[Rfam]
RNA sequence: AGCCUCACAGGGGAUGGCAUUCCCCCUUGAACCGCCAUGUGGCUAAUGAUGCCUGCUUUUUA
Numbered sequence: 001a002g003c004c005u006c007a008c009a010g011g012g013g014a015u016g017g018c019a020u021u022c023c024c025c026c027u028u029g030a031a032c033c034g035c036c037a038u039g040u041g042g043c044u045a046a047u048g049a050u051g052c053c054u055g056c057u058u059u060u061u062a
Base pairs, nucleotide, nucleotide: 010026011025012024013023016053017052018051019050020049021048034043035042036041